[Rfam]
RNA: msiK RNA
RNA sequence: UGCUGCCACCUUUCACAACGGAUCGUCCGGCACGUACCUGCCGGUGAAGGGAAAGCGAU
Numbered sequence: 001u002g003c004u005g006c007c008a009c010c011u012u013u014c015a016c017a018a019c020g021g022a023u024c025g026u027c028c029g030g031c032a033c034g035u036a037c038c039u040g041c042c043g044g045u046g047a048a049g050g051g052a053a054a055g056c057g058a059u
Base pairs, nucleotide, nucleotide: 009051010050011049012048013047014046015045027044028043029042030041031040032039